The family of this 107-nucleotide sequence from Canis lupus is "mir-8834 microRNA precursor family". Pairs were carried over by alignment from the consensus structure, which was predicted with RNAalifold. The source organism's lineage runs through Eukaryota, Dipnotetrapodomorpha, Theria, Boreoeutheria and Canis lupus. A search with the family's covariance model found it, with a score of 51 bits. Its family is annotated with RISC complex and miRNA-mediated post-transcriptional gene silencing in the Gene Ontology.
RNA sequence: AGGAGGAACAACCCCAGUGGUGGCGGCCAGCUCUCCAGCCCUGGAGUCAGCUCCCACAGUAGCUUCAGAGCUCUCAGUCUGCAGGGGCCUGGAUACUCCAGGGGCGG
Numbered sequence: 001a002g003g004a005g006g007a008a009c010a011a012c013c014c015c016a017g018u019g020g021u022g023g024c025g026g027c028c029a030g031c032u033c034u035c036c037a038g039c040c041c042u043g044g045a046g047u048c049a050g051c052u053c054c055c056a057c058a059g060u061a062g063c064u065u066c067a068g069a070g071c072u073c074u075c076a077g078u079c080u081g082c083a084g085g086g087g088c089c090u091g092g093a094u095a096c097u098c099c100a101g102g103g104g105c106g107g
Base pairs, nucleotide, nucleotide: 002099003098004097005096007094009091010090012087013086014085019079020078021077023075025074026073029072030071031070032069033068034067037064041059042058043057